[Rfam]
Record summary
This 70-nucleotide RNA sequence from Angomonas deanei belongs to the Rfam family "Trypanosomatid snoRNA TB11Cs2H1". The source organism's lineage runs through Eukaryota, Euglenozoa, Trypanosomatidae, Strigomonadinae and Angomonas. It scores 62 bits against the family's covariance model. The family's RNA type in Rfam is H/ACA-box small nucleolar RNA.

RNA sequence: CACGCUCUCUUAGUAGUGCUCUCGCCGCUAACCCAACAGGCCCGAUGCACGAAACUGGGGAGCCAGACAC
Numbered sequence: 001c002a003c004g005c006u007c008u009c010u011u012a013g014u015a016g017u018g019c020u021c022u023c024g025c026c027g028c029u030a031a032c033c034c035a036a037c038a039g040g041c042c043c044g045a046u047g048c049a050c051g052a053a054a055c056u057g058g059g060g061a062g063c064c065a066g067a068c069a070c
Stems, first nucleotide, its partner, number of pairs: 004063006016050004022044001024041003